[Rfam]
RNA sequence: GCGCUGUGAAAGACGAUGGUAGUGAGAUGCAGAACGCCGCAGUCUAUCUCCCUACCCCGUCUUUUCUGGUGGG
Numbered sequence: 001g002c003g004c005u006g007u008g009a010a011a012g013a014c015g016a017u018g019g020u021a022g023u024g025a026g027a028u029g030c031a032g033a034a035c036g037c038c039g040c041a042g043u044c045u046a047u048c049u050c051c052c053u054a055c056c057c058c059g060u061c062u063u064u065u066c067u068g069g070u071g072g073g
Base pairs, nucleotide, nucleotide: 008065009064010063011062012061013060014059015058018056019055021053022052024050025049026048027047028046029045
RNA: mir-71 microRNA precursor family
Organism: Fasciolopsis buskii